[Rfam]
RNA sequence: GCCAAGACUAGAGUCAUAUCCUGACACAACUCUUUUCCUGGUGUACUAGAGUACGUACUCGGAGAGAAUCUACUGGUCUUGAUUCACUGGCAGGAGCAGUCGGUGCUCCCAUUAGUACCCAGAAAUAAAAUAA
Numbered sequence: 001g002c003c004a005a006g007a008c009u010a011g012a013g014u015c016a017u018a019u020c021c022u023g024a025c026a027c028a029a030c031u032c033u034u035u036u037c038c039u040g041g042u043g044u045a046c047u048a049g050a051g052u053a054c055g056u057a058c059u060c061g062g063a064g065a066g067a068a069u070c071u072a073c074u075g076g077u078c079u080u081g082a083u084u085c086a087c088u089g090g091c092a093g094g095a096g097c098a099g100u101c102g103g104u105g106c107u108c109c110c111a112u113u114a115g116u117a118c119c120c121a122g123a124a125a126u127a128a129a130a131u132a133a
Base pairs, nucleotide, nucleotide: 002062003061005059006058007052008051009050012047013046016044017043018042019041020040023037024036026034074124077123078122079121081119086116087115088114089113090112093109094108095107096106097105
Dot-bracket structure: .((.(((((..((..(((((..((.(.......).))..))))).))..))).....)).))...........(..(((.(....(((((..(((((.......)))))..)))))..).)))).........
Notes: The record is a 133-nucleotide sequence from Saimiri boliviensis, which matches "Small nucleolar RNA SNORA3/SNORA45 family" in Rfam. Pairs were carried over by alignment from the consensus structure, which was predicted with RNAalifold. The family's RNA type in Rfam is H/ACA-box small nucleolar RNA. A search with the family's covariance model found it, with a score of 76 bits. About the family: The members of this family belong to the H/ACA class of snoRNAs which are thought to guide the sites of modification of uridines to pseudouridines. This family includes mouse snoMBI-28 and human homologues ACA3 (SNORA3) and ACA3-2 (SNORA45). Both ACA3 and ACA3-2 share the same host gene. MBI-28, ACA3 and ACA3-2 are all predicted to guide the pseudouridylation of residues in 28S rRNA.